A member of the RNA family "mir-27 microRNA precursor family" from Tetraodon nigroviridis, 71 nucleotides long. Taxonomically the source falls in Tetraodon (Eukaryota, Craniata, Teleostei, Tetradontoidea).
[Rfam]
RNA sequence: UGCGGCGGCAGGACUUAACCCACAUGUGAACAGUGAGUGUGCCGUGUUCACAGUGGUUAAGUUCUGCCGCC
Numbered sequence: 001u002g003c004g005g006c007g008g009c010a011g012g013a014c015u016u017a018a019c020c021c022a023c024a025u026g027u028g029a030a031c032a033g034u035g036a037g038u039g040u041g042c043c044g045u046g047u048u049c050a051c052a053g054u055g056g057u058u059a060a061g062u063u064c065u066g067c068c069g070c071c
Base pairs, nucleotide, nucleotide: 011064012063013062014061015060016059017058018057019056020055026051027050028049029048030047031046032045